[Rfam]
RNA sequence: AAAGUAGCCUAUGCCACCGCCAUGGACUGGUUCAUCGCCGUCUGUUUUGCCUUU
Numbered sequence: 001a002a003a004g005u006a007g008c009c010u011a012u013g014c015c016a017c018c019g020c021c022a023u024g025g026a027c028u029g030g031u032u033c034a035u036c037g038c039c040g041u042c043u044g045u046u047u048u049g050c051c052u053u054u
Base pairs, nucleotide, nucleotide: 001054002053003052007050008049011046013045014044016041017040019038020037022035023034024033025032026031
Background: A member of the RNA family "Editing element of GABA-3 exon 9" from Stegastes partitus, 54 nucleotides long. The literature on the family includes a 2007 paper in RNA by Ohlson et al., "Editing modifies the GABA(A) receptor subunit alpha3". NCBI's taxonomy places the organism under Eukaryota, Actinopterygii, Osteoglossocephalai, Neoteleostei, Stegastes. Rfam 15.1 lists 4,208 matches to the family in 654 species. By type it is a cis-regulatory element.